[Rfam]
RNA: mraW RNA
Organism: Cellulomonas marina
RNA sequence: ACGCCGUCGUCCGACGAGACCUCCCCCCGAUCCCGCUGCCGCACUUCCCCGGCGGCAGGGGGUUCGGAGGGGGAUCUGGCCGGACGGUGGAGGGCCG
Numbered sequence: 001a002c003g004c005c006g007u008c009g010u011c012c013g014a015c016g017a018g019a020c021c022u023c024c025c026c027c028c029g030a031u032c033c034c035g036c037u038g039c040c041g042c043a044c045u046u047c048c049c050c051g052g053c054g055g056c057a058g059g060g061g062g063u064u065c066g067g068a069g070g071g072g073g074a075u076c077u078g079g080c081c082g083g084a085c086g087g088u089g090g091a092g093g094g095c096c097g
Stems, first nucleotide, its partner, number of pairs: 010084004015079001018076002021073005027067004032062003036058007